[Rfam]
Description:
A member of the RNA family "Small Cajal body specific RNA 11" from Ceyx cyanopectus, 138 nucleotides long. The base pairs follow the family's consensus structure, which was predicted with RNAalifold. Rfam's curators write: scaRNAs are a specific class of small nuclear RNAs which localise to the Cajal bodies and guide the modification of RNA polymerase II transcribed spliceosomal RNAs U1, U2, U4, U5 and U12. ACA57 belongs to the H/ACA box class of guide RNAs as it has the predicted hairpin-hinge-hairpin-tail structure, conserved H/ACA-box motifs and is found associated with GAR1. ACA57 is predicted to guide the pseudouridylation of the U5 spliceosomal RNA at position U43. Lineage of the source: Eukaryota > Gnathostomata > Teleostomi > Saurischia > Ceyx.
RNA sequence: GUGUCCUGACCUCAUCCUGGCUGUUCCUCUCACCAAAACUGUGGUGGAGGAGACUGGGGGUGGACACAGAUCAAAAUCUCUCCUGUUAGGAGGGCUACCAAAGAUGUGUGCAAGCCCUUAAAGGCAAGAGAGGACACU
Numbered sequence: 001g002u003g004u005c006c007u008g009a010c011c012u013c014a015u016c017c018u019g020g021c022u023g024u025u026c027c028u029c030u031c032a033c034c035a036a037a038a039c040u041g042u043g044g045u046g047g048a049g050g051a052g053a054c055u056g057g058g059g060g061u062g063g064a065c066a067c068a069g070a071u072c073a074a075a076a077u078c079u080c081u082c083c084u085g086u087u088a089g090g091a092g093g094g095c096u097a098c099c100a101a102a103g104a105u106g107u108g109u110g111c112a113a114g115c116c117c118u119u120a121a122a123g124g125c126a127a128g129a130g131a132g133g134a135c136a137c138u
Stems, first nucleotide, its partner, number of pairs: 002066005010059002025053002029049001030047004077133006086123002090119007098110001099108002